[Rfam]
RNA sequence: UCGACCGGCACGCCGUACUGCGGCGGCCCGGCCGGAGGACCUGGGGGUGAAGCCGCCAGCGUGCGGCCGGGCAACCUUCGCGCCCGAAUCCGACAGCUAACCUCGCAGGCGUGCCGGAGGGAUUCC
Numbered sequence: 001u002c003g004a005c006c007g008g009c010a011c012g013c014c015g016u017a018c019u020g021c022g023g024c025g026g027c028c029c030g031g032c033c034g035g036a037g038g039a040c041c042u043g044g045g046g047g048u049g050a051a052g053c054c055g056c057c058a059g060c061g062u063g064c065g066g067c068c069g070g071g072c073a074a075c076c077u078u079c080g081c082g083c084c085c086g087a088a089u090c091c092g093a094c095a096g097c098u099a100a101c102c103u104c105g106c107a108g109g110c111g112u113g114c115c116g117g118a119g120g121g122a123u124u125c126c
Stems, first nucleotide, its partner, number of pairs: 011111004018031003033105003037101001045091003053066004069085004

Overview: c-di-AMP riboswitch aptamer (ydaO/yuaA leader): a 126-nucleotide RNA from Actinoplanes siamensis. This family represents a conserved RNA structure found upstream of the ydaO and yuaA genes in Bacillus subtilis and related genes in other bacteria.